[Rfam]
The record is a 99-nucleotide RNA sequence from Rummeliibacillus stabekisii, which matches "TPP riboswitch aptamer (THI element)" in Rfam. It scores 63 bits against the family's covariance model.
RNA sequence: AUUUUAGUGCGGGGGGACACGAAAGUGUUGAGAAGGUUAAAACCUGACCCUUAGAACCUGACAGUUAAUACUGACGUAGGGAGCAGAUGAAGGUAUGAA
Numbered sequence: 001a002u003u004u005u006a007g008u009g010c011g012g013g014g015g016g017a018c019a020c021g022a023a024a025g026u027g028u029u030g031a032g033a034a035g036g037u038u039a040a041a042a043c044c045u046g047a048c049c050c051u052u053a054g055a056a057c058c059u060g061a062c063a064g065u066u067a068a069u070a071c072u073g074a075c076g077u078a079g080g081g082a083g084c085a086g087a088u089g090a091a092g093g094u095a096u097g098a099a
Stems, first nucleotide, its partner, number of pairs: 008085003011051004016045001017028004035044003057080004062073003
About the family: Vitamin B(1) in its active form thiamin pyrophosphate (TPP) is an essential coenzyme that is synthesised by coupling of pyrimidine and thiazole moieties in bacteria.
The base pairs follow the family's consensus structure, which is taken from published work.
Lineage of the source: Bacteria > Bacilli > Caryophanales > Caryophanaceae > Rummeliibacillus.